[Rfam]
RNA: Small nucleolar RNA SNORD35
RNA sequence: UGCAAAUGAUGCUUUUUCUCACGAUGGUCUUCCAAACCGUUUGGGUUCUGACGACAAUGCCUAAUGGCAACACUGAUGUAGUCUA
Numbered sequence: 001u002g003c004a005a006a007u008g009a010u011g012c013u014u015u016u017u018c019u020c021a022c023g024a025u026g027g028u029c030u031u032c033c034a035a036a037c038c039g040u041u042u043g044g045g046u047u048c049u050g051a052c053g054a055c056a057a058u059g060c061c062u063a064a065u066g067g068c069a070a071c072a073c074u075g076a077u078g079u080a081g082u083c084u085a
Base pairs, nucleotide, nucleotide: 001080002079003078004077
Dot-bracket structure: ((((........................................................................)))).....